[Rfam]
RNA: t44 RNA
Organism: Bathymodiolus azoricus thioautotrophic gill symbiont
RNA sequence: CCCAAUUUAUUUUAAUGUAUCACACAGCUUGGCAUAUUAGUCAGGGUGCUCUUUGAGAAAGAAGGGUUGACUAAUAGAAGUUGUGGAAGGAAAAG
Numbered sequence: 001c002c003c004a005a006u007u008u009a010u011u012u013u014a015a016u017g018u019a020u021c022a023c024a025c026a027g028c029u030u031g032g033c034a035u036a037u038u039a040g041u042c043a044g045g046g047u048g049c050u051c052u053u054u055g056a057g058a059a060a061g062a063a064g065g066g067u068u069g070a071c072u073a074a075u076a077g078a079a080g081u082u083g084u085g086g087a088a089g090g091a092a093a094a095g
Stems, first nucleotide, its partner, number of pairs: 023085008035076009048067005